This 63-nucleotide RNA sequence from Caenorhabditis elegans belongs to the Rfam family "mir-254 microRNA precursor family".
On this family, see Lim et al., Genes Dev 2003: "The microRNAs of Caenorhabditis elegans".
The sequence is in the family's curated seed alignment.
[Rfam]
RNA sequence: UACAGAAGCAUAGAUUUCCACAAACCAUUCGAGGUGUUUGUGCAAAUCUUUCGCGACUGUAGG
Numbered sequence: 001u002a003c004a005g006a007a008g009c010a011u012a013g014a015u016u017u018c019c020a021c022a023a024a025c026c027a028u029u030c031g032a033g034g035u036g037u038u039u040g041u042g043c044a045a046a047u048c049u050u051u052c053g054c055g056a057c058u059g060u061a062g063g
Stems, first nucleotide, its partner, number of pairs: 001061005008054002010051001012049006019042004024037002026034001